This 209-nucleotide sequence from Meloidogyne hapla belongs to the Rfam family "Small nucleolar RNA U3". Rfam 15.1 lists 19,072 matches to the family in 1,215 species. Rfam links the family to the GO terms nucleolus and RNA processing. Rfam's curators write: Small nucleolar RNAs (snoRNAs) are involved in the processing and modification of rRNA in the nucleolus. There are two main classes of snoRNAs: the box C/D class, and the box H/ACA class. U3 snoRNA is a member of the box C/D class. Indeed, the box C/D element is a subset of the six short sequence elements found in all U3 snoRNAs, namely boxes A, A', B, C, C', and D. The U3 snoRNA secondary structure is characterised by a small 5' domain (with boxes A and A'), and a larger 3' domain (with boxes B, C, C', and D), the two domains being linked by a single-stranded hinge. Boxes B and C form the B/C motif, which appears to be exclusive to U3 snoRNAs, and boxes C' and D form the C'/D motif. The latter is functionally similar to the C/D motifs found in other snoRNAs. The 5' domain and the hinge region act as a pre-rRNA-binding domain. The 3' domain has conserved protein-binding sites. Both the box B/C and box C'/D motifs are sufficient for nuclear retention of U3 snoRNA. The box C'/D motif is also necessary for nucleolar localisation, stability and hyper-methylation of U3 snoRNA. Both box B/C and C'/D motifs are involved in specific protein interactions and are necessary for the rRNA processing functions of U3 snoRNA. The literature on the family includes a 1999 paper in Mol Cell Biol by Speckmann et al., "Nuclear retention elements of U3 small nucleolar RNA". NCBI's taxonomy places the organism under Eukaryota, Bilateria, Protostomia, Meloidogyninae, Meloidogyne.

[Rfam]
RNA sequence: GGGACUGUACUUCUCAGGAUCAUUUCUGUAGUAUGUAUUCCCUUGCGGAGACGCAAACUGCUUCACCAAGCACCCUCGAUGAUGAGUUUAGGCGUUGUUCCCUGAGCGUGAAGCUUGUUGGGACGAUGCCAAAAUUUUGGAUGUCCUGACGUUGAUGAUCGUCAGCUGGCCCUUCGGGUCGGCGAUGGGGACAACGCUCUCUGAGCGGG
Numbered sequence: 001g002g003g004a005c006u007g008u009a010c011u012u013c014u015c016a017g018g019a020u021c022a023u024u025u026c027u028g029u030a031g032u033a034u035g036u037a038u039u040c041c042c043u044u045g046c047g048g049a050g051a052c053g054c055a056a057a058c059u060g061c062u063u064c065a066c067c068a069a070g071c072a073c074c075c076u077c078g079a080u081g082a083u084g085a086g087u088u089u090a091g092g093c094g095u096u097g098u099u100c101c102c103u104g105a106g107c108g109u110g111a112a113g114c115u116u117g118u119u120g121g122g123a124c125g126a127u128g129c130c131a132a133a134a135u136u137u138u139g140g141a142u143g144u145c146c147u148g149a150c151g152u153u154g155a156u157g158a159u160c161g162u163c164a165g166c167u168g169g170c171c172c173u174u175c176g177g178g179u180c181g182g183c184g185a186u187g188g189g190g191a192c193a194a195c196g197c198u199c200u201c202u203g204a205g206c207g208g209g
Base pairs, nucleotide, nucleotide: 001041002040003039004038006035007034008033009032010031011030015028016027017026018025019024048063049062050061052060053059073209074208075207077205092197093196094195095194096193097192098191099190100189101188102187106162107161108160116151117150118149119148122145123144124143125142129140130139131138132137165183166182167181168180169179170178171177